[Rfam]
RNA sequence: CCCCUGUGAUGAGUUGCCAUGCUAAUACUGAGAUAUCAGGAGAGGUGUUUUACCUUGCACUGGGUGUUGAGAUAAAUUCUGCUUCUCUUAAAUCUACCUGAGGGGC
Numbered sequence: 001c002c003c004c005u006g007u008g009a010u011g012a013g014u015u016g017c018c019a020u021g022c023u024a025a026u027a028c029u030g031a032g033a034u035a036u037c038a039g040g041a042g043a044g045g046u047g048u049u050u051u052a053c054c055u056u057g058c059a060c061u062g063g064g065u066g067u068u069g070a071g072a073u074a075a076a077u078u079c080u081g082c083u084u085c086u087c088u089u090a091a092a093u094c095u096a097c098c099u100g101a102g103g104g105g106c
Stems, first nucleotide, its partner, number of pairs: 001105004042056004